[Rfam]
The family of this 76-nucleotide RNA sequence from Alligator sinensis is "Mammalian CPEB3 ribozyme".
The base pairs follow the family's consensus structure, which is taken from published work.
Rfam's curators write: The mammalian CPEB3 ribozyme is a self cleaving RNA located in the second intron of the CPEB3 gene which belongs to a family of genes regulating messenger RNA polyadenylation.
Lineage of the source: Eukaryota > Chordata > Dipnotetrapodomorpha > Archelosauria > Alligator.
The match comes from Rfam's covariance-model search (49 bits).
Gene Ontology term of the family: RNA nuclease activity.
RNA sequence: GGUGACAAGUUUGAGGCCAUAGCAGAAGUACUCAUAGAGCAGCCUGUCAGUUUCCAAUGAAACUGUGAAUUCUGCU
Numbered sequence: 001g002g003u004g005a006c007a008a009g010u011u012u013g014a015g016g017c018c019a020u021a022g023c024a025g026a027a028g029u030a031c032u033c034a035u036a037g038a039g040c041a042g043c044c045u046g047u048c049a050g051u052u053u054c055c056a057a058u059g060a061a062a063c064u065g066u067g068a069a070u071u072c073u074g075c076u
Base pairs, nucleotide, nucleotide: 015044016043017042021076022075023074024073025072026071027070028040029039048065049064050063051062052061053060054059